[Rfam]
RNA sequence: CUCUGGAGAGUGUUUACUUAGAAUUAGUAAACCACCCACGAAGCAAAUACUUAUACAGUCAUCCAACGUUCGUAUAAGUAUGCAACUUUCUGGUUUAAGGACAGAG
Numbered sequence: 001c002u003c004u005g006g007a008g009a010g011u012g013u014u015u016a017c018u019u020a021g022a023a024u025u026a027g028u029a030a031a032c033c034a035c036c037c038a039c040g041a042a043g044c045a046a047a048u049a050c051u052u053a054u055a056c057a058g059u060c061a062u063c064c065a066a067c068g069u070u071c072g073u074a075u076a077a078g079u080a081u082g083c084a085a086c087u088u089u090c091u092g093g094u095u096u097a098a099g100g101a102c103a104g105a106g
Stems, first nucleotide, its partner, number of pairs: 001106005012032006034094003038089001041088003047081010
RNA: Glycine riboswitch aptamer
Organism: Oceanobacillus profundus